RNA sequence: ACCUGUCGCGGGUGGCAUCGAGAUGCCCCGCGACACAAGACAGAACACCGUGUCUCGGAACAUCGGGGCACUUCAGGGCGUU
Numbered sequence: 001a002c003c004u005g006u007c008g009c010g011g012g013u014g015g016c017a018u019c020g021a022g023a024u025g026c027c028c029c030g031c032g033a034c035a036c037a038a039g040a041c042a043g044a045a046c047a048c049c050g051u052g053u054c055u056c057g058g059a060a061c062a063u064c065g066g067g068g069c070a071c072u073u074c075a076g077g078g079c080g081u082u
Stems, first nucleotide, its partner, number of pairs: 004035008014027005050071008
Shown here is an 82-nucleotide RNA sequence from Streptomyces sp. AS58, a member of the family "nrdJ RNA". The base pairs follow the family's consensus structure, which is taken from published work. NCBI's taxonomy places the organism under Bacteria, Bacillati, Actinomycetes, Streptomycetaceae, Streptomyces. It is annotated as a small RNA.